Notes: The family of this 99-nucleotide sequence from Treponema vincentii is "TD-2 RNA".
RNA sequence: AGCGGCACGGAUGCCGCUGGUUUAUAUCAGAAGUGAUGUUUCGGCUGCUGCCGAAACUCACAGUCAAAACUAUACACGGAUGUAUAGUUUUGACGAUGC
Numbered sequence: 001a002g003c004g005g006c007a008c009g010g011a012u013g014c015c016g017c018u019g020g021u022u023u024a025u026a027u028c029a030g031a032a033g034u035g036a037u038g039u040u041u042c043g044g045c046u047g048c049u050g051c052c053g054a055a056a057c058u059c060a061c062a063g064u065c066a067a068a069a070c071u072a073u074a075c076a077c078g079g080a081u082g083u084a085u086a087g088u089u090u091u092g093a094c095g096a097u098g099c
Stems, first nucleotide, its partner, number of pairs: 001018006034060003038057008063094013
Pairs were carried over by alignment from the consensus structure, which is taken from published work.
The organism belongs to Treponema vincentii, within Bacteria.